RNA sequence: GCAGUAUUCCCACGCUGAAGCGCCCGGUGGUAAGGGAUCAGCGUGGUGAAGGUGGGCAAUCUCCGCCCUUCCCGGGGCGGGUUGUGCCGUUCGGCGUUCGGCGUCCGGGAGUUCCCGCUCUCGGGCGCCGCCG
Numbered sequence: 001g002c003a004g005u006a007u008u009c010c011c012a013c014g015c016u017g018a019a020g021c022g023c024c025c026g027g028u029g030g031u032a033a034g035g036g037a038u039c040a041g042c043g044u045g046g047u048g049a050a051g052g053u054g055g056g057c058a059a060u061c062u063c064c065g066c067c068c069u070u071c072c073c074g075g076g077g078c079g080g081g082u083u084g085u086g087c088c089g090u091u092c093g094g095c096g097u098u099c100g101g102c103g104u105c106c107g108g109g110a111g112u113u114c115c116c117g118c119u120c121u122c123g124g125g126c127g128c129c130g131c132c133g
Stems, first nucleotide, its partner, number of pairs: 001095002007049001010046009023035002052090004057086002062081008099130014